[Rfam]
RNA sequence: AAAGGCCGUGAUGAGUAAAUACAGACCUGUAAUGAAUUGCGGAUAUGAUCGCAACUCAUGAAUGAACAUCUAAGGGACUGAGCCUUU
Dot-bracket structure: .(((((...........................................................................))))).
Small nucleolar RNA SNORD25: an 87-nucleotide RNA sequence from Carnegiea gigantea. The source organism's lineage runs through Eukaryota, Streptophytina, Tracheophyta, Pentapetalae and Carnegiea. The family has 12 seed sequences and 985 matches in Rfam 15.1. Clan: SNORD25 clan. The family's consensus secondary structure was predicted with PFOLD. On this family, see Qu et al., Nucleic Acids Res 2001: "Identification of 10 novel snoRNA gene clusters from Arabidopsis thaliana".